[Rfam]
RNA sequence: AUUCACCACUAGGGGUGCCAUUAGAAUGGCUGAGAUCAAAGUGUGACUUUGAGACUCUUGGAACCUGAUUUGGUUUAUACCAACGUAGGGAAGUGGCACGGCAGAAAU
Numbered sequence: 001a002u003u004c005a006c007c008a009c010u011a012g013g014g015g016u017g018c019c020a021u022u023a024g025a026a027u028g029g030c031u032g033a034g035a036u037c038a039a040a041g042u043g044u045g046a047c048u049u050u051g052a053g054a055c056u057c058u059u060g061g062a063a064c065c066u067g068a069u070u071u072g073g074u075u076u077a078u079a080c081c082a083a084c085g086u087a088g089g090g091a092a093g094u095g096g097c098a099c100g101g102c103a104g105a106a107a108u
Base pairs, nucleotide, nucleotide: 006096007095008094009093010092011058012057013056014055016052017030018029019028020027021026037051038050039049040048041047064089065088066087067086070083071082072081073080

Background: The record is a 108-nucleotide sequence from Rummeliibacillus stabekisii, which matches "TPP riboswitch aptamer (THI element)" in Rfam. The literature on the family includes a 2006 paper in Nature by Serganov et al., "Structural basis for gene regulation by a thiamine pyrophosphate-sensing riboswitch". The family's consensus secondary structure is taken from published work.